[Rfam]
RNA sequence: UGAUGUGUUCGUAGUGUGGCGAGCAGGAUAAAUUAAAGAAGUACACGACAAGA
Dot-bracket structure: .....((((((..[[[[..)))))).................]]]].......

Rfam assigns this 53-nucleotide sequence to the family "6A RNA". Pairs were carried over by alignment from the consensus structure, which is taken from published work.